[Rfam]
RNA sequence: AUGAGUAGCGAAAGAUGAGUGAGAAACUCAUCCGCCGGAUGAUCAAGGGUUCCAGGGUCAAGUUAAUCUGCCCUGGGUUAGUCGGGGCCUAAGGCGAGGCCGACAGGCGUAGUCGAUGGAUAACGGGUUGAUAUUCCCGUACCGGUGAAAAACCGCCCAUACUGAUAUUGUGAUGCUAACCAUGCGAAGCAUGAUGUGCAGGCUUUUGUUUGUGUGUUGUGUGGGUUGUGGGACCCGAUCUUUGGAGGUAAACGUGUUAACAGGUGUGACGCAGGAAGGUAGCCAAGCCACGCGAUGGUUGUCGUGGUCUAAGCGUGUAGGGUUGUCGGUUGUUAAAUGCGCCGGCUGUGUGCCUGAGACGUGAUGGGACCCUGUUUUUGGGGGAUUUGGUGAUCCUAUGCUGCCGAGAAAAGCAUCGGCGUGAGGUUUUAGCCGCCCGUACCCUAAACCGACACAGGUGAUCAGGUAGAGAAUACUAAGGCGAU
Numbered sequence: 001a002u003g004a005g006u007a008g009c010g011a012a013a014g015a016u017g018a019g020u021g022a023g024a025a026a027c028u029c030a031u032c033c034g035c036c037g038g039a040u041g042a043u044c045a046a047g048g049g050u051u052c053c054a055g056g057g058u059c060a061a062g063u064u065a066a067u068c069u070g071c072c073c074u075g076g077g078u079u080a081g082u083c084g085g086g087g088c089c090u091a092a093g094g095c096g097a098g099g100c101c102g103a104c105a106g107g108c109g110u111a112g113u114c115g116a117u118g119g120a121u122a123a124c125g126g127g128u129u130g131a132u133a134u135u136c137c138c139g140u141a142c143c144g145g146u147g148a149a150a151a152a153c154c155g156c157c158c159a160u161a162c163u164g165a166u167a168u169u170g171u172g173a174u175g176c177u178a179a180c181c182a183u184g185c186g187a188a189g190c191a192u193g194a195u196g197u198g199c200a201g202g203c204u205u206u207u208g209u210u211u212g213u214g215u216g217u218u219g220u221g222u223g224g225g226u227u228g229u230g231g232g233a234c235c236c237g238a239u240c241u242u243u244g245g246a247g248g249u250a251a252a253c254g255u256g257u258u259a260a261c262a263g264g265u266g267u268g269a270c271g272c273a274g275g276a277a278g279g280u281a282g283c284c285a286a287g288c289c290a291c292g293c294g295a296u297g298g299u300u301g302u303c304g305u306g307g308u309c310u311a312a313g314c315g316u317g318u319a320g321g322g323u324u325g326u327c328g329g330u331u332g333u334u335a336a337a338u339g340c341g342c343c344g345g346c347u348g349u350g351u352g353c354c355u356g357a358g359a360c361g362u363g364a365u366g367g368g369a370c371c372c373u374g375u376u377u378u379u380g381g382g383g384g385a386u387u388u389g390g391u392g393a394u395c396c397u398a399u400g401c402u403g404c405c406g407a408g409a410a411a412a413g414c415a416u417c418g419g420c421g422u423g424a425g426g427u428u429u430u431a432g433c434c435g436c437c438c439g440u441a442c443c444c445u446a447a448a449c450c451g452a453c454a455c456a457g458g459u460g461a462u463c464a465g466g467u468a469g470a471g472a473a474u475a476c477u478a479a480g481g482c483g484a485u
Base pairs, nucleotide, nucleotide: 014032015031016030017029018028019027033483034482035481036480041463042462043461044460047443048442052076053075054074055073056072057071061069062068083439084438085437088119089118093114094113095112097110099108100107101106123140124139125138126137127136143435144434145433146432148430149429150428169415170414171413175396179391180390181389182388184309313362314361315360316359322353323352327348328347329346330345332343374379449458450457465477466476467475

Rfam assigns this 485-nucleotide part of an RNA from Rothia mucilaginosa to the family "Archaeal large subunit ribosomal RNA". The base pairs follow the family's consensus structure, which is taken from published work. Taxonomically the source falls in Rothia mucilaginosa (Bacteria, Bacillati, Actinomycetes, Rothia). A search with the family's covariance model found it, with a score of 1460 bits.